Overview: Group II catalytic intron D1-D4-5: a 189-nucleotide sequence from Peribacillus loiseleuriae. It scores 60 bits against the family's covariance model. Group II introns are found in rRNA, tRNA and mRNA of organelles in fungi, plants and protists, and also in mRNA in bacteria. The pairing is the family consensus, mapped onto this sequence. Its family is annotated with Group II intron splicing in the Gene Ontology. The family has 139 seed sequences and 720 matches in Rfam 15.1.
RNA sequence: CUGAAGGGCUAUAUCGAGGGGUCAAUUGAAGGGGGAAUGUCCUGAAGAGUUCUCUCUUACUAACACUCGAUUUAGUAAGAAUGAUAGUGUUAUAAGCUAGGAGAAAUGAAGUGAGAAUUUACCGUACUAGUUCGACUGACGGAAACCUCCCCGAGCGGGUUGGUGUAAAUCAUGGUGCUUUGAGUUGAA
Numbered sequence: 001c002u003g004a005a006g007g008g009c010u011a012u013a014u015c016g017a018g019g020g021g022u023c024a025a026u027u028g029a030a031g032g033g034g035g036a037a038u039g040u041c042c043u044g045a046a047g048a049g050u051u052c053u054c055u056c057u058u059a060c061u062a063a064c065a066c067u068c069g070a071u072u073u074a075g076u077a078a079g080a081a082u083g084a085u086a087g088u089g090u091u092a093u094a095a096g097c098u099a100g101g102a103g104a105a106a107u108g109a110a111g112u113g114a115g116a117a118u119u120u121a122c123c124g125u126a127c128u129a130g131u132u133c134g135a136c137u138g139a140c141g142g143a144a145a146c147c148u149c150c151c152c153g154a155g156c157g158g159g160u161u162g163g164u165g166u167a168a169a170u171c172a173u174g175g176u177g178c179u180u181u182g183a184g185u186u187g188a189a
Base pairs, nucleotide, nucleotide: 018053019052020051021050022049031043032042033041034040054184056101057100058099059098061092062091063090064089065088066087067086070085071084072083108181109180110179111178112177117170118169119168120167121166122165123141124140125139129137130136145164146163147162150159151158152157